[Rfam]
RNA sequence: CCCGUCGCGCGACGGGCCGGGAUGUGGCCGCACACGGCUGAACCACCAA
Numbered sequence: 001c002c003c004g005u006c007g008c009g010c011g012a013c014g015g016g017c018c019g020g021g022a023u024g025u026g027g028c029c030g031c032a033c034a035c036g037g038c039u040g041a042a043c044c045a046c047c048a049a
Stems, first nucleotide, its partner, number of pairs: 001016005019044002026039005

Rfam assigns this 49-nucleotide sequence to the family "eL15-Euryarchaeota ribosomal protein leader". Rfam's curators put it in the seed alignment. Rfam classes the family as a cis-regulatory leader.